[Rfam]
RNA sequence: GUGAACGAAUUCACAUACAAACAUAUACCCCUUUGUUUGAACGUGAAAAUUUCUCCCAUCCCCUUUAAUAUUUUUAUAAGCCGUAAAGAAGAAGACCUGGUGUUUUACACCAGGUCUUUUU
Numbered sequence: 001g002u003g004a005a006c007g008a009a010u011u012c013a014c015a016u017a018c019a020a021a022c023a024u025a026u027a028c029c030c031c032u033u034u035g036u037u038u039g040a041a042c043g044u045g046a047a048a049a050u051u052u053c054u055c056c057c058a059u060c061c062c063c064u065u066u067a068a069u070a071u072u073u074u075u076a077u078a079a080g081c082c083g084u085a086a087a088g089a090a091g092a093a094g095a096c097c098u099g100g101u102g103u104u105u106u107a108c109a110c111c112a113g114g115u116c117u118u119u120u121u
Base pairs, nucleotide, nucleotide: 003053004052005051007050011046012045013044014043018039019038020037021036022035023034069088072085092118093117094116095115096114097113098112099111100110101109102108
Overview:
Shown here is a 121-nucleotide RNA from Bacillus cereus, a member of the family "RNA Staph. aureus E (RoxS)". Lineage of the source: Bacteria > Caryophanales > Bacillaceae > Bacillus > Bacillus cereus. It was shown to be regulated by the presence of nitric oxide (NO). In Bacillus subtilis it controls expression of genes with functions related to oxidative stress and oxidation-reduction reactions and it was renamed RoxS (for related to oxidative stress). Gene Ontology term of the family: regulation of translational initiation. Pairs were carried over by alignment from the consensus structure, which is taken from published work.